Source information: Archaeal large subunit ribosomal RNA: a 578-nucleotide part of an RNA from candidate division MSBL1 archaeon SCGC-AAA382A20. A reference for the family is Yusupov et al. (2001), "Crystal structure of the ribosome at 5.5 A resolution", Science.
[Rfam]
RNA sequence: CUCCCGUAGGGAAGCGAAGACCCCGUGGAGCUUAACUGCAGGCUGCUGUUGGGGUUUGGUCAACGAUGUAAAGCGUAGGCGGGAGCCGUCGAAACCGGAUCGCCAGAUCCGGCAGAGGCGCCCAUGUAACACCGCCCGUUGUUGACCGGAUUCCUAACUACGAAAGUAGAACAGCAGCAGUUGGGCAGUUUCGCUGGGGCGGCAGCCCCUCGAAAAAUUAUCGAGGGGGUCCAAUGGUCGGCUUAGGCGGGUCAGAAAUCCGCCGUAAAGGACAAGGCCAGAAGCCGGCCUAACUGUGUCCUCAAUACAGGAGGACGCAGGGGCGAAAGCCAGGCCUAGCGAACCCCGAUGUCCCUCUUGGUGAGGGCUCGGGAUGACAGAAAAGCUACCCCGGGGAUAACAGAGUUGUCUCCCCCAAGAGCCCGUAUCGACGGGGAGGCUUGCGACCUCGAUGUCGGUUCUUCGCAUCCUGGCCGUGCAGCAGCGGCCAAGGGUAGGGUUGUUCGCCCGUUAAAGCGGAUCGUGAGCUGGGUUUAGACCGUCGUGAGACAGGUCGGACGCUAUCUUGCGGGAGUGCU
Numbered sequence: 001c002u003c004c005c006g007u008a009g010g011g012a013a014g015c016g017a018a019g020a021c022c023c024c025g026u027g028g029a030g031c032u033u034a035a036c037u038g039c040a041g042g043c044u045g046c047u048g049u050u051g052g053g054g055u056u057u058g059g060u061c062a063a064c065g066a067u068g069u070a071a072a073g074c075g076u077a078g079g080c081g082g083g084a085g086c087c088g089u090c091g092a093a094a095c096c097g098g099a100u101c102g103c104c105a106g107a108u109c110c111g112g113c114a115g116a117g118g119c120g121c122c123c124a125u126g127u128a129a130c131a132c133c134g135c136c137c138g139u140u141g142u143u144g145a146c147c148g149g150a151u152u153c154c155u156a157a158c159u160a161c162g163a164a165a166g167u168a169g170a171a172c173a174g175c176a177g178c179a180g181u182u183g184g185g186c187a188g189u190u191u192c193g194c195u196g197g198g199g200c201g202g203c204a205g206c207c208c209c210u211c212g213a214a215a216a217a218u219u220a221u222c223g224a225g226g227g228g229g230u231c232c233a234a235u236g237g238u239c240g241g242c243u244u245a246g247g248c249g250g251g252u253c254a255g256a257a258a259u260c261c262g263c264c265g266u267a268a269a270g271g272a273c274a275a276g277g278c279c280a281g282a283a284g285c286c287g288g289c290c291u292a293a294c295u296g297u298g299u300c301c302u303c304a305a306u307a308c309a310g311g312a313g314g315a316c317g318c319a320g321g322g323g324c325g326a327a328a329g330c331c332a333g334g335c336c337u338a339g340c341g342a343a344c345c346c347c348g349a350u351g352u353c354c355c356u357c358u359u360g361g362u363g364a365g366g367g368c369u370c371g372g373g374a375u376g377a378c379a380g381a382a383a384a385g386c387u388a389c390c391c392c393g394g395g396g397a398u399a400a401c402a403g404a405g406u407u408g409u410c411u412c413c414c415c416c417a418a419g420a421g422c423c424c425g426u427a428u429c430g431a432c433g434g435g436g437a438g439g440c441u442u443g444c445g446a447c448c449u450c451g452a453u454g455u456c457g458g459u460u461c462u463u464c465g466c467a468u469c470c471u472g473g474c475c476g477u478g479c480a481g482c483a484g485c486g487g488c489c490a491a492g493g494g495u496a497g498g499g500u501u502g503u504u505c506g507c508c509c510g511u512u513a514a515a516g517c518g519g520a521u522c523g524u525g526a527g528c529u530g531g532g533u534u535u536a537g538a539c540c541g542u543c544g545u546g547a548g549a550c551a552g553g554u555c556g557g558a559c560g561c562u563a564u565c566u567u568g569c570g571g572g573a574g575u576g577c578u
Base pairs, nucleotide, nucleotide: 001574002573003572004571005570006569007568008567010566011565012564014561015560022395023394024393025392027391028390029387030386031385032384033383035189036188037187038186042181043180044179045178046177047176048175051154052153053152054151055150056149057148058147059146060145061144062143063142064141065140066139067138068137078136079135080134081133082132085119086118087117097110098109099108100107101106158169159168160167161166192205193203194202195201206228207227208226209225210224211223231334232333237289238288239287240286241285242284243269244268246264247263248262249261250260251259270279271278294320295319296318297317298316299315300314301313302312322331324329345373346372347371348370349369351368353367354366355365356364405444406443408442409439410438411437412436413435414434415433419429420428456531457529458528459527460526461523462520463519464518465517466516469494470493473488474487475486476485477484497509498508499507500506537555538554539553540552541550542549543548